[Rfam]
RNA sequence: CCAAAACUAGCCACUUGUCAUUUUCUAAUUGGUUCAUAGUGUGUUAAAAAACUUCUAAAAUUAAUUAGAAAAUGACAAGUGGCUAGUUUUGG
Numbered sequence: 001c002c003a004a005a006a007c008u009a010g011c012c013a014c015u016u017g018u019c020a021u022u023u024u025c026u027a028a029u030u031g032g033u034u035c036a037u038a039g040u041g042u043g044u045u046a047a048a049a050a051a052c053u054u055c056u057a058a059a060a061u062u063a064a065u066u067a068g069a070a071a072a073u074g075a076c077a078a079g080u081g082g083c084u085a086g087u088u089u090u091g092g
Stems, first nucleotide, its partner, number of pairs: 002091033037057003
Dot-bracket structure: .(((((((((((((((((((((((((((((((((..(((...............))).))))))))))))))))))))))))))))))))).
Rfam assigns this 92-nucleotide sequence from Prunus avium to the family "MIR6288 microRNA precursor family". A search with the family's covariance model found it, with a score of 86 bits. Rfam links the family to the GO terms miRNA-mediated post-transcriptional gene silencing and RISC complex. Rfam 15.1 lists 293 matches to the family in 9 species. Taxonomically the source falls in Prunus (Eukaryota, Spermatophyta, eudicotyledons, Rosales).